[Rfam]
RNA sequence: UAUUGUUAGUAUUCAAAAUAACAUAGCAAGUUAAAAUAAGGCUUUGUCCGUUAUCAACUUUUAAUUAAGUAGCGCUGUUUCGGCGCUUUUUUU
Numbered sequence: 001u002a003u004u005g006u007u008a009g010u011a012u013u014c015a016a017a018a019u020a021a022c023a024u025a026g027c028a029a030g031u032u033a034a035a036a037u038a039a040g041g042c043u044u045u046g047u048c049c050g051u052u053a054u055c056a057a058c059u060u061u062u063a064a065u066u067a068a069g070u071a072g073c074g075c076u077g078u079u080u081c082g083g084c085g086c087u088u089u090u091u092u093u
Stems, first nucleotide, its partner, number of pairs: 001036001003034003010025003040049002057070001059068002071087007